The family of this 82-nucleotide RNA sequence from Petromyzon marinus is "mir-132 microRNA precursor family".
The family has 50 seed sequences and 1,023 matches in Rfam 15.1.
A reference for the family is Chen et al. (2005), "The developmental miRNA profiles of zebrafish as determined by small RNA cloning", Genes Dev.

RNA sequence: UGCCCGGGCGCCCGUGGCGUUAGACUGAUGCUGUGAGGCUCCACAGAGGCAGUAACAGUCUACAGCCAUGGACACCCGGCGG
Numbered sequence: 001u002g003c004c005c006g007g008g009c010g011c012c013c014g015u016g017g018c019g020u021u022a023g024a025c026u027g028a029u030g031c032u033g034u035g036a037g038g039c040u041c042c043a044c045a046g047a048g049g050c051a052g053u054a055a056c057a058g059u060c061u062a063c064a065g066c067c068a069u070g071g072a073c074a075c076c077c078g079g080c081g082g
Stems, first nucleotide, its partner, number of pairs: 012071002015068004023060005029054004

Source information
Rfam links the family to the GO terms RISC complex and miRNA-mediated post-transcriptional gene silencing.